RNA: M-box riboswitch aptamer (ykoK leader)
RNA sequence: AAAAUGCUUUGUUAGGCGAGGCUCCUUUAUAGACACAUGCUGCUACCCGGAAACGUCGAGAGACGCCAAAUGGGUCAACAGGCACUGCCGGAUUAAGGUUUUGCUUAAUGUAGCUGGUUGGUUAACACCUACGCUAUAAAGUGCUAAAGCUCAACGAGGGAAGAAACGU
Number, nucleotide and partner (000 for none) at each position: 001a000002a000003a000004a000005u165006g000007c163008u162009u161010u160011g155012u154013u096014a000015g151016g150017c149018g000019a000020g145021g144022c143023u000024c000025c141026u140027u139028u138029a137030u136031a135032g134033a000034c000035a000036c000037a000038u000039g114040c113041u112042g111043c110044u000045a075046c074047c073048c072049g071050g000051a000052a000053a000054c065055g064056u063057c062058g000059a000060g000061a000062g057063a056064c055065g054066c000067c000068a000069a000070a000071u049072g048073g047074g046075u045076c000077a000078a000079c000080a000081g105082g104083c103084a102085c000086u000087g099088c098089c097090g000091g000092a000093u000094u000095a000096a013097g089098g088099u087100u000101u000102u084103g083104c082105u081106u000107a000108a000109u000110g043111u042112a041113g040114c039115u000116g129117g128118u127119u000120g000121g000122u000123u000124a000125a000126c000127a118128c117129c116130u000131a000132c000133g000134c032135u031136a030137u029138a028139a027140a026141g025142u000143g022144c021145u020146a000147a000148a000149g017150c016151u015152c000153a000154a012155c011156g000157a000158g000159g000160g010161a009162a008163g007164a000165a005166a000167c000168g000169u000